[Rfam]
RNA sequence: GGAAUUUUUUUCGAAAUAGAACGCUCAUAUCGAUAAAAUAAUUUGAACUAUUU
Numbered sequence: 001g002g003a004a005u006u007u008u009u010u011u012c013g014a015a016a017u018a019g020a021a022c023g024c025u026c027a028u029a030u031c032g033a034u035a036a037a038a039u040a041a042u043u044u045g046a047a048c049u050a051u052u053u
Stems, first nucleotide, its partner, number of pairs: 011033004016028002